[Rfam]
RNA sequence: ACGACGGCCGCGCCGAGUCCGGACUCGUCUCCUGGGGGGAGAGGGGUGGCCGGAGCCGGGGACCCAUGUUCCUGGGGUGAAUCCAGGCGCCGACAGCACCGAUCGUGCCGUCACAGCCUGGUAGGGCGUUCUUUGGGCCCGAACCCGUCAGCUCACCUGGUAGGCGUCCAGACAAAGAGGA
Numbered sequence: 001a002c003g004a005c006g007g008c009c010g011c012g013c014c015g016a017g018u019c020c021g022g023a024c025u026c027g028u029c030u031c032c033u034g035g036g037g038g039g040a041g042a043g044g045g046g047u048g049g050c051c052g053g054a055g056c057c058g059g060g061g062a063c064c065c066a067u068g069u070u071c072c073u074g075g076g077g078u079g080a081a082u083c084c085a086g087g088c089g090c091c092g093a094c095a096g097c098a099c100c101g102a103u104c105g106u107g108c109c110g111u112c113a114c115a116g117c118c119u120g121g122u123a124g125g126g127c128g129u130u131c132u133u134u135g136g137g138c139c140c141g142a143a144c145c146c147g148u149c150a151g152c153u154c155a156c157c158u159g160g161u162a163g164g165c166g167u168c169c170a171g172a173c174a175a176a177g178a179g180g181a
Stems, first nucleotide, its partner, number of pairs: 011166004018054005055161006065074002075146003083121006124140004
This 181-nucleotide RNA from Marmoricola sp. Leaf446 belongs to the Rfam family "c-di-AMP riboswitch aptamer (ydaO/yuaA leader)".
It scores 77 bits against the family's covariance model.
The source organism's lineage runs through Bacteria, Bacillati, Actinomycetes, Nocardioidaceae and Marmoricola.